[Rfam]
RNA sequence: CAUCCAAUGCAAACUGCUUUUAACCGAGACCUAUAGGCAGGAUAAUACUUCGUCUCUCAUAUCCAGUAGCGAGGGGUUGCUGGAAAUAAGUUUCGCAU
Number, nucleotide and partner (000 for none) at each position: 001c000002a000003u000004c000005c000006a000007a000008u000009g000010c000011a000012a000013a000014c040015u039016g038017c037018u036019u000020u000021u035022a034023a000024c000025c000026g056027a055028g054029a053030c052031c000032u000033a000034u022035a021036g018037g017038c016039a015040g014041g000042a000043u000044a000045a000046u000047a000048c000049u000050u000051c000052g030053u029054c028055u027056c026057u000058c000059a000060u000061a000062u084063c083064c082065a081066g080067u079068a078069g000070c000071g000072a000073g000074g000075g000076g000077u000078u068079g067080c066081u065082g064083g063084a062085a000086a000087u000088a000089a000090g000091u000092u000093u000094c000095g000096c000097a000098u000
RNA: PhotoRC-II RNA